[Rfam]
The family of this 126-nucleotide RNA sequence from Phyllostomus discolor is "Small nucleolar RNA SNORD22". Gene Ontology terms of the family: nucleolus and RNA processing. On this family, see Tycowski et al., Nature 1996: "A mammalian gene with introns instead of exons generating stable RNA products". The match comes from Rfam's covariance-model search (122 bits). It is annotated as a C/D-box small nucleolar RNA.
RNA sequence: UCCCAUUGAGGGAACCUUCACAUGUCUUUCCUCCUGUCUUAGUCCCAGAGCCUGUAGAGAGGGGCCCAAUGGGGCUGGCUGAGGUGGAAGAGGAAAAUUUGUUCCAGAAGGAACUACCUGAGGGAU
Numbered sequence: 001u002c003c004c005a006u007u008g009a010g011g012g013a014a015c016c017u018u019c020a021c022a023u024g025u026c027u028u029u030c031c032u033c034c035u036g037u038c039u040u041a042g043u044c045c046c047a048g049a050g051c052c053u054g055u056a057g058a059g060a061g062g063g064g065c066c067c068a069a070u071g072g073g074g075c076u077g078g079c080u081g082a083g084g085u086g087g088a089a090g091a092g093g094a095a096a097a098u099u100u101g102u103u104c105c106a107g108a109a110g111g112a113a114c115u116a117c118c119u120g121a122g123g124g125a126u
Base pairs, nucleotide, nucleotide: 001125002124003123004122
Dot-bracket structure: ((((.....................................................................................................................)))).